[Rfam]
RNA sequence: AAAUAUAACUAGGGGUGCUAAGUCAAUUACUUAGCUGAGAUCAUACCCUUCGAACCUGAAACAGUUAAAACUGACGCAGGAAAGUUUCAAUUUGAUCGA
Numbered sequence: 001a002a003a004u005a006u007a008a009c010u011a012g013g014g015g016u017g018c019u020a021a022g023u024c025a026a027u028u029a030c031u032u033a034g035c036u037g038a039g040a041u042c043a044u045a046c047c048c049u050u051c052g053a054a055c056c057u058g059a060a061a062c063a064g065u066u067a068a069a070a071c072u073g074a075c076g077c078a079g080g081a082a083a084g085u086u087u088c089a090a091u092u093u094g095a096u097c098g099a
Base pairs, nucleotide, nucleotide: 007086008085009084010083011049012048013047014046016043017035018034019033020032021031022030023029055080056079057078058077062073063072064071
Rfam assigns this 99-nucleotide RNA sequence from Prochlorococcus marinus to the family "TPP riboswitch aptamer (THI element)". NCBI's taxonomy places the organism under Bacteria, Synechococcales, Prochlorococcaceae, Prochlorococcus, Prochlorococcus marinus subsp. pastoris. It is one of the family's seed sequences.